Source information: The record is a 77-nucleotide RNA from Psilopogon haemacephalus, which matches "mir-9/mir-79 microRNA precursor family" in Rfam. Its family is annotated with RISC complex and miRNA-mediated post-transcriptional gene silencing in the Gene Ontology. On this family, see Lagos-Quintana et al., Science 2001: "Identification of novel genes coding for small expressed RNAs". Pairs were carried over by alignment from the consensus structure, which was predicted with RNAalifold.
RNA sequence: GGGUUUUUACAUUCGGUUCUCUAGCUUUAUGAUAUCACAUAACACUCAUACAGCUAGAUAACCAAAGAGAAAAACCC
Numbered sequence: 001g002g003g004u005u006u007u008u009a010c011a012u013u014c015g016g017u018u019c020u021c022u023a024g025c026u027u028u029a030u031g032a033u034a035u036c037a038c039a040u041a042a043c044a045c046u047c048a049u050a051c052a053g054c055u056a057g058a059u060a061a062c063c064a065a066a067g068a069g070a071a072a073a074a075c076c077c
Stems, first nucleotide, its partner, number of pairs: 001077005007071002012066002015063004020058007028050005